RNA sequence: AGAUUUUCGAAUCCGUGCUGAGACUUCGUCAGACACCAACCCAUCAGGGUUGAUCGGACUUCCAAGAUAAGUGAAGUU
Numbered sequence: 001a002g003a004u005u006u007u008c009g010a011a012u013c014c015g016u017g018c019u020g021a022g023a024c025u026u027c028g029u030c031a032g033a034c035a036c037c038a039a040c041c042c043a044u045c046a047g048g049g050u051u052g053a054u055c056g057g058a059c060u061u062c063c064a065a066g067a068u069a070a071g072u073g074a075a076g077u078u
Stems, first nucleotide, its partner, number of pairs: 002077001004075003008071001011068003016064002020061003025057002028054003